[Rfam]
RNA sequence: CCGUGCUAGACGGGGAGCUCGCGGUGCCCUGUAACCCGUAAUCCGCGAUAACGGGGUCGAUGCCUGUCCGAGGUCCUUUCCGUGUGGGGUCCGGACCGUUUCAGGAGGCGUCGACGAUCGGGUCCUGCGCAACAGGAACUUCCGAACCGUGUCAGGUCCUGACGGAAGCAGCACUAAGGAAGCCCUCCUGUGUGCCGCAGGGGUGCCUGGUCUGAGCCGAAUGGACGGUGCCCGCCUGGGCGGGGAGGAUCGACGGCAGGUGCACGG
Number, nucleotide and partner (000 for none) at each position: 001c267002c266003g265004u264005g263006c262007u000008a000009g058010a057011c056012g030013g029014g028015g027016a000017g025018c024019u023020c000021g000022c000023g019024g018025u017026g000027c015028c014029c013030u012031g000032u000033a000034a000035c055036c054037c053038g052039u051040a000041a000042u000043c000044c000045g000046c000047g000048a000049u000050a000051a039052c038053g037054g036055g035056g011057u010058c009059g000060a000061u000062g000063c260064c259065u258066g257067u256068c255069c000070g000071a000072g251073g250074u249075c248076c247077u000078u000079u244080c243081c242082g241083u240084g000085u238086g237087g236088g235089g000090u000091c000092c234093g233094g000095a229096c228097c227098g226099u225100u224101u000102c000103a222104g000105g000106a000107g218108g217109c216110g000111u000112c000113g000114a000115c000116g212117a211118u210119c209120g208121g207122g206123u205124c201125c200126u199127g198128c197129g196130c192131a191132a000133c190134a189135g188136g187137a186138a000139c182140u181141u180142c179143c178144g000145a000146a000147c000148c000149g174150u173151g172152u171153c000154a000155g000156g000157u166158c165159c164160u000161g000162a000163c000164g159165g158166a157167a000168g000169c000170a000171g152172c151173a150174c149175u000176a000177a000178g143179g142180a141181a140182g139183c000184c000185c000186u137187c136188c135189u134190g133191u131192g130193u000194g000195c000196c129197g128198c127199a126200g125201g124202g000203g000204u000205g123206c122207c121208u120209g119210g118211u117212c116213u000214g000215a000216g109217c108218c107219g000220a000221a000222u103223g000224g100225a099226c098227g097228g096229u095230g000231c000232c000233c093234g092235c088236c087237u086238g085239g000240g083241c082242g081243g080244g079245g000246a000247g076248g075249a074250u073251c072252g000253a000254c000255g068256g067257c066258a065259g064260g063261u000262g006263c005264a004265c003266g002267g001

Rfam assigns this 267-nucleotide RNA sequence from Planifilum fulgidum to the family "Bacterial large signal recognition particle RNA". The match comes from Rfam's covariance-model search (197 bits). A reference for the family is Rosenblad et al. (2003), "SRPDB: Signal Recognition Particle Database", Nucleic Acids Res. Taxonomically the source falls in Planifilum (Bacteria, Bacillota, Caryophanales, Thermoactinomycetaceae). The family's RNA type in Rfam is non-coding RNA gene.